The family of this 104-nucleotide RNA sequence from Hordeum vulgare is "Small nucleolar RNA Z279/snoR105/snoR108". From the family's description: This family includes the plant snoRNAs known as Z279, snoR105 and snoR108. By type it is a C/D-box small nucleolar RNA. On this family, see Marker et al., Curr Biol 2002: "Experimental RNomics: identification of 140 candidates for small non-messenger RNAs in the plant Arabidopsis thaliana".
RNA sequence: GGGAGAUGAUGAGCGGUGUCAGCUCGCUAUAUGCGAGAGGGGUGUCCGCCCCAACUAAGCCUGUUACGACAAUGGGGCACCCCAAUGACUUACCAUCUGAUCCC
Dot-bracket structure: ((((..........((((....(((((.....))))).((((((((..............((((.......)))))))))))).......))))......))))
The family's consensus secondary structure was predicted with PFOLD. Rfam links the family to the GO terms RNA processing and nucleolus. Rfam 15.1 lists 906 matches to the family in 223 species.